A member of the RNA family "TPP riboswitch aptamer (THI element)" from Priestia filamentosa, 102 nucleotides long. Its family is annotated with thiamine pyrophosphate binding in the Gene Ontology. The base pairs follow the family's consensus structure, which is taken from published work.
RNA sequence: UAAGGCUACUAGGGGUGCUGUAAAAAGCUGAGAGAGACAAGUGUCUUAACCCUUACACCUGAUCUAGGUAAUGCUAGCGAAGGGAAGUGGUUGGCGAAUUGU
Numbered sequence: 001u002a003a004g005g006c007u008a009c010u011a012g013g014g015g016u017g018c019u020g021u022a023a024a025a026a027g028c029u030g031a032g033a034g035a036g037a038c039a040a041g042u043g044u045c046u047u048a049a050c051c052c053u054u055a056c057a058c059c060u061g062a063u064c065u066a067g068g069u070a071a072u073g074c075u076a077g078c079g080a081a082g083g084g085a086a087g088u089g090g091u092u093g094g095c096g097a098a099u100u101g102u
Stems, first nucleotide, its partner, number of pairs: 006090005011053004017028003035046004058083003064077004